[Rfam]
RNA sequence: GGAGAGGUGGCAGAGUGGUAAUGCAGCAGAUUGCUAAUCUGUCGACCUUUUUUGGUCGCCAGGGUUCGAGUCCCUGUCUCUCCG
Numbered sequence: 001g002g003a004g005a006g007g008u009g010g011c012a013g014a015g016u017g018g019u020a021a022u023g024c025a026g027c028a029g030a031u032u033g034c035u036a037a038u039c040u041g042u043c044g045a046c047c048u049u050u051u052u053u054g055g056u057c058g059c060c061a062g063g064g065u066u067c068g069a070g071u072c073c074c075u076g077u078c079u080c081u082c083c084g
Base pairs, nucleotide, nucleotide: 001083002082003081004080005079006078007077010024011023012022026042027041028040029039030038060076061075062074063073064072
This 84-nucleotide sequence from Polaribacter porphyrae belongs to the Rfam family "tRNA".
Lineage of the source: Bacteria > Pseudomonadati > Bacteroidota > Flavobacteriales > Polaribacter.
It scores 58 bits against the family's covariance model.